[Rfam]
RNA sequence: UCUGGAUAAACUUGUAUUCACCCAAGAGAGUGGAGCAAGUCACUUUACGGAAUUAUAAUUAAGUAACACAUUUUGGAAUUGAUAAAGACUUACAUAUAAGUGAAAUUCCGAAAUGUUAGGAUAACUGUACAUCCUUUAAUAUAUUUUAUAUUAUAAAAGCAAUCUUGAAUAUCUUUGAUUAAGUUUUCAAGUUACGCUUGU
Numbered sequence: 001u002c003u004g005g006a007u008a009a010a011c012u013u014g015u016a017u018u019c020a021c022c023c024a025a026g027a028g029a030g031u032g033g034a035g036c037a038a039g040u041c042a043c044u045u046u047a048c049g050g051a052a053u054u055a056u057a058a059u060u061a062a063g064u065a066a067c068a069c070a071u072u073u074u075g076g077a078a079u080u081g082a083u084a085a086a087g088a089c090u091u092a093c094a095u096a097u098a099a100g101u102g103a104a105a106u107u108c109c110g111a112a113a114u115g116u117u118a119g120g121a122u123a124a125c126u127g128u129a130c131a132u133c134c135u136u137u138a139a140u141a142u143a144u145u146u147u148a149u150a151u152u153a154u155a156a157a158a159g160c161a162a163u164c165u166u167g168a169a170u171a172u173c174u175u176u177g178a179u180u181a182a183g184u185u186u187u188c189a190a191g192u193u194a195c196g197c198u199u200g201u
Stems, first nucleotide, its partner, number of pairs: 001051004006046001008044001010040006017034005022028001068116005074110007088101002091098001118135005124198001126196004130159001137153005164191006171184002
Rfam assigns this 201-nucleotide sequence to the family "IS605-orfB-I RNA".
It is one of the family's seed sequences.